RNA sequence: ACGGUCGCGAAGCGAGGCCUAGGUAGCGCCGGAAGAGAAGGCACUAUCUCCCGACCCCAGCGACCCAGCACGGUUCCCGGCACCCACGCGGAGCAUGCCGCGAUAUGGCAGAAGUGUUGCGGGCCUGCGCCAUUGCGAAAAGCGGACGGACACGACGAUCCUUUGGGGUGGAUCGCUACCGAAGCGCAUCGCAAGACCGCCGAGGCCAACCCACGCAGCCGAUACCGCACGCUUGGUAACCGGGAAACCGUGCUAGCGGGCGGCGAGCCGAACUCUUCUCGGAUCGUCGCCCGCUUUCGACU
Numbered sequence: 001a002c003g004g005u006c007g008c009g010a011a012g013c014g015a016g017g018c019c020u021a022g023g024u025a026g027c028g029c030c031g032g033a034a035g036a037g038a039a040g041g042c043a044c045u046a047u048c049u050c051c052c053g054a055c056c057c058c059a060g061c062g063a064c065c066c067a068g069c070a071c072g073g074u075u076c077c078c079g080g081c082a083c084c085c086a087c088g089c090g091g092a093g094c095a096u097g098c099c100g101c102g103a104u105a106u107g108g109c110a111g112a113a114g115u116g117u118u119g120c121g122g123g124c125c126u127g128c129g130c131c132a133u134u135g136c137g138a139a140a141a142g143c144g145g146a147c148g149g150a151c152a153c154g155a156c157g158a159u160c161c162u163u164u165g166g167g168g169u170g171g172a173u174c175g176c177u178a179c180c181g182a183a184g185c186g187c188a189u190c191g192c193a194a195g196a197c198c199g200c201c202g203a204g205g206c207c208a209a210c211c212c213a214c215g216c217a218g219c220c221g222a223u224a225c226c227g228c229a230c231g232c233u234u235g236g237u238a239a240c241c242g243g244g245a246a247a248c249c250g251u252g253c254u255a256g257c258g259g260g261c262g263g264c265g266a267g268c269c270g271a272a273c274u275c276u277u278c279u280c281g282g283a284u285c286g287u288c289g290c291c292c293g294c295u296u297u298c299g300a301c302u
Base pairs, nucleotide, nucleotide: 003065004064006062007061008060012056016052017051021049022048025045026044028042029041030040067254068253069252070251071250072249073248074247077243078242079241080240084236085235086234088232089231090230093228094227096110097109098108099107116219117218118217119216120215121214122207123206124205125204126203127200128199129198133194134193135192136191137190138189142187143186144185147181148180149179156175157174158173159172160171161170256294257293258292259291260290261289262288263287264286265285266284268282269281270280

Shown here is a 302-nucleotide sequence from Mycolicibacterium anyangense, a member of the family "Mycobacterium smegmatis small RNA 1". Its family is annotated with RNA polymerase binding in the Gene Ontology. A reference for the family is Hnilicova et al. (2014), "Ms1, a novel sRNA interacting with the RNA polymerase core in mycobacteria", Nucleic Acids Res. Rfam describes the family as follows. Mycobacterium smegmatis small RNA 1 is highly expressed during stationary phase of growth. Ms1 RNA directly interacts with RNA polymerase (RNAP), but in a different way than 6S, which is present in other bacteria. Ms1 does not require the presence of the main sigma factor for RNAP interaction. There is evidence that Ms1 RNA may function similar to 6S RNA in M. smegmatis which does not have 6S RNA.